[Rfam]
RNA sequence: CGAUCGAGUAGAAGCGGUUAGCGCCAACGCAUCCCCAACGCAUCGCCAUCGCAGGCCGAUGCCCCGGCGCGGGACAUUGCUCUCACG
Dot-bracket structure: .....(((((....[..((.(((((........................................))))).]))...))))).....
Numbered sequence: 001c002g003a004u005c006g007a008g009u010a011g012a013a014g015c016g017g018u019u020a021g022c023g024c025c026a027a028c029g030c031a032u033c034c035c036c037a038a039c040g041c042a043u044c045g046c047c048a049u050c051g052c053a054g055g056c057c058g059a060u061g062c063c064c065c066g067g068c069g070c071g072g073g074a075c076a077u078u079g080c081u082c083u084c085a086c087g
Stems, first nucleotide, its partner, number of pairs: 006082005015072001018074002021070005
The record is an 87-nucleotide sequence from Cupriavidus sp. HPC(L), which matches "Xanthine riboswitch aptamer (NMT1 RNA)" in Rfam. A reference for the family is Yu and Breaker (2020), "A bacterial riboswitch class senses xanthine and uric acid to regulate genes associated with purine oxidation", RNA. The source organism's lineage runs through Bacteria, Pseudomonadati, Betaproteobacteria, Burkholderiales and Cupriavidus. It is one of the family's seed sequences. The base pairs follow the family's consensus structure, which is taken from published work. Rfam links the family to the GO term purine nucleobase binding.